[Rfam]
RNA sequence: GUCGGCAAGUGAUGUGCAAAUCUUUAUCCUACACACUCAAUGGGAAUACUACCAUGUGUGGACUAAUAAUCUCCUCUUAUUGUCUGAUGCCUUC
Numbered sequence: 001g002u003c004g005g006c007a008a009g010u011g012a013u014g015u016g017c018a019a020a021u022c023u024u025u026a027u028c029c030u031a032c033a034c035a036c037u038c039a040a041u042g043g044g045a046a047u048a049c050u051a052c053c054a055u056g057u058g059u060g061g062a063c064u065a066a067u068a069a070u071c072u073c074c075u076c077u078u079a080u081u082g083u084c085u086g087a088u089g090c091c092u093u094c
Stems, first nucleotide, its partner, number of pairs: 004091004
Shown here is a 94-nucleotide sequence from Paspalum vaginatum, a member of the family "Small nucleolar RNA R16". NCBI's taxonomy places the organism under Eukaryota, Streptophyta, Magnoliopsida, Paspaleae, Paspalum. The family has 18 seed sequences and 884 matches in Rfam 15.1. The family's consensus secondary structure was predicted with PFOLD.